The family of this 93-nucleotide sequence from Phaeobacter sp. 22II1-1F12B is "Rhodo-rpoB RNA".
Nucleotides: 093
Base pairs, nucleotide, nucleotide: 001043002042003041004040005039010031011030012029013028014027015026016025065093066092067091068090069089070087071086072085073084074083
Number, partner (000 for none) and nucleotide at each position: 001043g002042g003041a004040u005039c006000g007000g008000g009000a010031g011030g012029c013028u014027u015026c016025c017000u018000u019000u020000g021000g022000g023000a024000c025016g026015g027014a028013g029012g030011c031010c032000a033000u034000g035000a036000a037000u038000u039005g040004a041003u042002c043001c044000g045000a046000a047000c048000c049000c050000c051000c052000u053000g054000u055000c056000u057000c058000g059000u060000a061000u062000g063000g064000g065093u066092a067091a068090g069089g070087u071086g072085c073084c074083g075000g076000g077000g078000c079000c080000c081000g082000a083074c084073g085072g086071u087070g088000c089069c090068c091067u092066u093065g
It is annotated as a cis-regulatory element.
It scores 86 bits against the family's covariance model.
The organism belongs to Phaeobacter, within Bacteria.
The family's consensus secondary structure is taken from published work.